[Rfam]
About this RNA:
A member of the RNA family "Small nucleolar RNA SNORD34" from Coptis chinensis, 86 nucleotides long. The family is grouped with related families in Rfam's "SNORD34 clan". A reference for the family is Chen et al. (2003), "The high diversity of snoRNAs in plants: identification and comparative study of 120 snoRNA genes from Oryza sativa", Nucleic Acids Res. Lineage of the source: Eukaryota > Streptophytina > Mesangiospermae > Ranunculales > Coptis. From the family's description: snoRNA U34 is found in intron 5 of the ribosomal protein L13a gene in humans. The family's RNA type in Rfam is C/D-box small nucleolar RNA.

RNA sequence: AGGGGCUCAUGAUGAACUGCACAUUUGCCUACAUUGUUUGAAUAUUUCAAUGAUGAUAAGAAUCUGUGACAUUCUCUGAGGCCUUU
Numbered sequence: 001a002g003g004g005g006c007u008c009a010u011g012a013u014g015a016a017c018u019g020c021a022c023a024u025u026u027g028c029c030u031a032c033a034u035u036g037u038u039u040g041a042a043u044a045u046u047u048c049a050a051u052g053a054u055g056a057u058a059a060g061a062a063u064c065u066g067u068g069a070c071a072u073u074c075u076c077u078g079a080g081g082c083c084u085u086u
Stems, first nucleotide, its partner, number of pairs: 001086002004083004